[Rfam]
RNA sequence: UGUCUCCUCCACCCUCCUCCUUUGGUGGAUAUUUUCCCUGACUGCUUUUGUAGUCAGGGAUUUUUUU
Numbered sequence: 001u002g003u004c005u006c007c008u009c010c011a012c013c014c015u016c017c018u019c020c021u022u023u024g025g026u027g028g029a030u031a032u033u034u035u036c037c038c039u040g041a042c043u044g045c046u047u048u049u050g051u052a053g054u055c056a057g058g059g060a061u062u063u064u065u066u067u
Base pairs, nucleotide, nucleotide: 008029009028010027011026012025013024035060036059037058038057039056040055041054042053